[Rfam]
This 175-nucleotide sequence from Singulisphaera acidiphila belongs to the Rfam family "Group II catalytic intron D1-D4-3". Rfam 15.1 lists 4,274 matches to the family in 1,585 species. A search with the family's covariance model found it, with a score of 121 bits. From the family's description: Group II introns are found in rRNA, tRNA and mRNA of organelles in fungi, plants and protists, and also in mRNA in bacteria.
RNA sequence: CCCACCGUGAGGUGGGAUCUGAAGGAAGCCGAUGCCAUAACCUCGGACUCGACGAACAGAAACCGGAUACAAGGCCGACGCGGUGGGGUAACCCGGCAAUGGACGGGGACGCCCGAAAGUCAUCCAGACACGCGCGGAGGUAAAUCCGGCGAGGCCCGAGCGAAGGACUCACGAC
Number, nucleotide and partner (000 for none) at each position: 001c016002c015003c014004a013005c012006c011007g000008u000009g000010a000011g006012g005013u004014g003015g002016g001017a000018u000019c000020u000021g000022a000023a000024g000025g000026a000027a000028g175029c000030c173031g172032a000033u000034g000035c000036c166037a000038u000039a000040a000041c000042c160043u159044c158045g157046g156047a000048c153049u152050c151051g150052a000053c000054g000055a000056a000057c000058a000059g000060a000061a000062a000063c149064c148065g147066g146067a145068u144069a000070c000071a000072a000073g000074g141075c140076c139077g000078a000079c136080g135081c134082g133083g131084u130085g000086g114087g113088g112089u111090a000091a000092c107093c106094c105095g104096g000097c000098a000099a000100u000101g000102g000103a000104c095105g094106g093107g092108g000109a000110c000111g089112c088113c087114c086115g000116a000117a000118a000119g000120u000121c000122a000123u000124c000125c000126a000127g000128a000129c000130a084131c083132g000133c082134g081135c080136g079137g000138a000139g076140g075141u074142a000143a000144a068145u067146c066147c065148g064149g063150c051151g050152a049153g048154g000155c000156c046157c045158g044159a043160g042161c000162g000163a000164a000165g000166g036167a000168c000169u000170c000171a000172c031173g030174a000175c028